Rfam assigns this 97-nucleotide sequence from Acidithiobacillus ferrianus to the family "Guanidine-I riboswitch aptamer". The match comes from Rfam's covariance-model search (81 bits). A reference for the family is Nelson et al. (2017), "Metabolism of Free Guanidine in Bacteria Is Regulated by a Widespread Riboswitch Class", Mol Cell.
[Rfam]
RNA sequence: AUCACAGGAAUCUAGGGUUCCAGCCAGCAAAGGCGUUCGGACCGAGAGUUUCCGCCCUGAUAAACAGGGCACACGGAGGGAUAAAAGCCCGGGAGAU
Dot-bracket structure: ......((((.(..((...((((((......)))..).)).))....).))))((((((.....)))))).(.[...(((.......))).)..]..